[Rfam]
A member of the RNA family "mir-1233 microRNA precursor family" from Rhinopithecus roxellana, 82 nucleotides long. The organism belongs to Rhinopithecus, within Eukaryota. Gene Ontology terms of the family: RISC complex and miRNA-mediated post-transcriptional gene silencing.

RNA sequence: GUAAGCAGGAGGCCAGGGCAUGGCAUGGGGAGCUGCAGAGCCGUCAGAGGGGCCCCAGCAUCUGAGCCCUGUCCUUUUGCAG
Numbered sequence: 001g002u003a004a005g006c007a008g009g010a011g012g013c014c015a016g017g018g019c020a021u022g023g024c025a026u027g028g029g030g031a032g033c034u035g036c037a038g039a040g041c042c043g044u045c046a047g048a049g050g051g052g053c054c055c056c057a058g059c060a061u062c063u064g065a066g067c068c069c070u071g072u073c074c075u076u077u078u079g080c081a082g
Stems, first nucleotide, its partner, number of pairs: 005080008014071006028063003032059004038055001040053003